This 133-nucleotide RNA from Mus spicilegus belongs to the Rfam family "Small nucleolar RNA SNORA17". The match comes from Rfam's covariance-model search (109 bits). On this family, see Ofengand and Bakin, J Mol Biol 1997: "Mapping to nucleotide resolution of pseudouridine residues in large subunit ribosomal RNAs from representative eukaryotes, prokaryotes, archaebacteria, mitochondria and chloroplasts". Rfam's curators write: snoRNA ACA 17 belongs to the H/ACA family of snoRNAs and is predicted to guide pseudouridylation of the 28S rRNA at positions U4659 and U4598. It shares the same host gene together with ACA43. NB This family has a high threshold value to exclude a large number of closely related sequences that do not appear to have conserved H and ACA boxes, and may be pseudogenes. The family's RNA type in Rfam is H/ACA-box small nucleolar RNA. Rfam 15.1 lists 5,784 matches to the family in 673 species.

[Rfam]
RNA sequence: ACUGCCCUUAGAGGCAUUGCAGGUGUGGCUGCUAUGUCGCACGUGCGUCAGUAUGGGGGCAGAGAGGAGAGAGACUAUGUCUAUGCUUAAUGUUCUGACCUGUGAACAUCUGGAUGAUCAGUAGCUUAAAACU
Numbered sequence: 001a002c003u004g005c006c007c008u009u010a011g012a013g014g015c016a017u018u019g020c021a022g023g024u025g026u027g028g029c030u031g032c033u034a035u036g037u038c039g040c041a042c043g044u045g046c047g048u049c050a051g052u053a054u055g056g057g058g059g060c061a062g063a064g065a066g067g068a069g070a071g072a073g074a075c076u077a078u079g080u081c082u083a084u085g086c087u088u089a090a091u092g093u094u095c096u097g098a099c100c101u102g103u104g105a106a107c108a109u110c111u112g113g114a115u116g117a118u119c120a121g122u123a124g125c126u127u128a129a130a131a132c133u
Base pairs, nucleotide, nucleotide: 002062003061004060005059006058007055009053010052013049014048015047019046020045021044024041025040026039027038028037029036072127073126075124076123077122078121084116085115087113088112089111091108092107093106094105095104

The base pairs follow the family's consensus structure, which was predicted with RNAalifold.